[Rfam]
Small nucleolar RNA SNORA26: a 122-nucleotide sequence from Canis lupus.
Rfam's curators write: The snoRNA HBI-6 belong to the H/ACA family of snoRNAs, guiding the pseudouridylation of position U4522 if the 28S rRNA. HBI-6 is the human orthologue of mouse MBI-6 snoRNA.
Gene Ontology terms of the family: nucleolus and RNA processing.
Its Rfam clan is "SNORA27 clan".
Rfam classes the family as an H/ACA-box small nucleolar RNA.
The family's consensus secondary structure was predicted with RNAalifold.
The sequence is in the family's curated seed alignment.
The literature on the family includes a 2001 paper in EMBO J by Huttenhofer et al., "RNomics: an experimental approach that identifies 201 candidates for novel, small, non-messenger RNAs in mouse".

RNA sequence: GUGCGCUCCCAAGGCUGCCGCAGUGCCCUGGGAGGCCAACACAGAAGGGGACAGCAAGGCUCCAUGAAACCCAGGGACGAGCCCGCAGAGCUCCUCUUUGGAUCCUGUCUGGAGUCACAGCC
Numbered sequence: 001g002u003g004c005g006c007u008c009c010c011a012a013g014g015c016u017g018c019c020g021c022a023g024u025g026c027c028c029u030g031g032g033a034g035g036c037c038a039a040c041a042c043a044g045a046a047g048g049g050g051a052c053a054g055c056a057a058g059g060c061u062c063c064a065u066g067a068a069a070c071c072c073a074g075g076g077a078c079g080a081g082c083c084c085g086c087a088g089a090g091c092u093c094c095u096c097u098u099u100g101g102a103u104c105c106u107g108u109c110u111g112g113a114g115u116c117a118c119a120g121c122c
Base pairs, nucleotide, nucleotide: 002051004049006047007046009044014040016038017037019035021032058116060114061113062112063111064110071101072100073099074098075097076096077095079093080092081091083090